Shown here is a 117-nucleotide RNA from Sphingomonas sp. AP4-R1, a member of the family "ALIL pseudoknot". The family has 26 seed sequences and 2,146 matches in Rfam 15.1. The organism belongs to Sphingomonas, within Bacteria. Rfam links the family to the GO term positive regulation of translational frameshifting. A search with the family's covariance model found it, with a score of 95 bits.

[Rfam]
RNA sequence: CGCGUAUUUUGCCCAGGCGGAGUUCGACCGCCCGUUCCGGCGAUGAUCGCCUUCAUCGACGAUCAUCGCGAAACCUACGGGGUCGAGCCGAUCCGCCACGUUCUGCCGAUCACCCUA
Numbered sequence: 001c002g003c004g005u006a007u008u009u010u011g012c013c014c015a016g017g018c019g020g021a022g023u024u025c026g027a028c029c030g031c032c033c034g035u036u037c038c039g040g041c042g043a044u045g046a047u048c049g050c051c052u053u054c055a056u057c058g059a060c061g062a063u064c065a066u067c068g069c070g071a072a073a074c075c076u077a078c079g080g081g082g083u084c085g086a087g088c089c090g091a092u093c094c095g096c097c098a099c100g101u102u103c104u105g106c107c108g109a110u111c112a113c114c115c116u117a
Stems, first nucleotide, its partner, number of pairs: 016032005079116004090111001092109002095106002